Rfam assigns this 60-nucleotide sequence from Piliocolobus tephrosceles to the family "U7 small nuclear RNA".
The base pairs follow the family's consensus structure, which was predicted with PFOLD.
The family has 49 seed sequences and 10,439 matches in Rfam 15.1.
RNA sequence: AAGUGUUACAGCUCUUAGAAUCUGUCUAGCAUGCUUUCUAGCUUUUGCCAGAAAGCCCAC
Numbered sequence: 001a002a003g004u005g006u007u008a009c010a011g012c013u014c015u016u017a018g019a020a021u022c023u024g025u026c027u028a029g030c031a032u033g034c035u036u037u038c039u040a041g042c043u044u045u046u047g048c049c050a051g052a053a054a055g056c057c058c059a060c
Stems, first nucleotide, its partner, number of pairs: 033056007041048002